RNA sequence: GUUGAAUAUGCGCUGAAUUUUCCAAGGGGAAAACGGGGGAACCAAACUUGGCACUUGUGCCAAAGGGGUGAAUCGGCAGCCGGUCGUCACGACCGGGCCGUAGGGCUUUCCACAGCCCGAAUCCGACAGCUAACCUCGUAAGCAAAGGUGGGAUAGACC
Numbered sequence: 001g002u003u004g005a006a007u008a009u010g011c012g013c014u015g016a017a018u019u020u021u022c023c024a025a026g027g028g029g030a031a032a033a034c035g036g037g038g039g040a041a042c043c044a045a046a047c048u049u050g051g052c053a054c055u056u057g058u059g060c061c062a063a064a065g066g067g068g069u070g071a072a073u074c075g076g077c078a079g080c081c082g083g084u085c086g087u088c089a090c091g092a093c094c095g096g097g098c099c100g101u102a103g104g105g106c107u108u109u110c111c112a113c114a115g116c117c118c119g120a121a122u123c124c125g126a127c128a129g130c131u132a133a134c135c136u137c138g139u140a141a142g143c144a145a146a147g148g149u150g151g152g153a154u155a156g157a158c159c
Base pairs, nucleotide, nucleotide: 012143013142014141018032019031020030033139034138035137036136037135038134043065066124067123068122074100075099076098077097103118104117105116106115

Rfam assigns this 159-nucleotide RNA from Paenibacillus albidus to the family "c-di-AMP riboswitch aptamer (ydaO/yuaA leader)".
The match comes from Rfam's covariance-model search (85 bits).
The base pairs follow the family's consensus structure.
The organism belongs to Paenibacillus, within Bacteria.